[Rfam]
RNA sequence: CCGCCGGGACGACCCGGCCGCGCCAGGGCUGUUUUUCCGGGACGACCCGG
Numbered sequence: 001c002c003g004c005c006g007g008g009a010c011g012a013c014c015c016g017g018c019c020g021c022g023c024c025a026g027g028g029c030u031g032u033u034u035u036u037c038c039g040g041g042a043c044g045a046c047c048c049g050g
Stems, first nucleotide, its partner, number of pairs: 001020001003018006037050005
Guanidine-II riboswitch aptamer (mini-ykkC): a 50-nucleotide RNA from Methylobacterium sp. Leaf93.
The family's consensus secondary structure is taken from published work.
The source organism's lineage runs through Bacteria, Pseudomonadota, Alphaproteobacteria, Hyphomicrobiales and Methylobacterium.